mir-219 microRNA precursor family: a 74-nucleotide sequence from Branchiostoma belcheri.
RNA sequence: UCCAGUGCUGAUUGUCCAAACGCAAUUCUUGUUUGACCUUUGAACCAAGAACUGCGCUGGACAUCAGCAAUUGA
Numbered sequence: 001u002c003c004a005g006u007g008c009u010g011a012u013u014g015u016c017c018a019a020a021c022g023c024a025a026u027u028c029u030u031g032u033u034u035g036a037c038c039u040u041u042g043a044a045c046c047a048a049g050a051a052c053u054g055c056g057c058u059g060g061a062c063a064u065c066a067g068c069a070a071u072u073g074a
Base pairs, nucleotide, nucleotide: 002073004071006069007068009066010065011064012063014062015061016060017059018058021056022055023054024053026051027050028049029048030047031046
It scores 65 bits against the family's covariance model. Rfam links the family to the GO terms miRNA-mediated post-transcriptional gene silencing and RISC complex.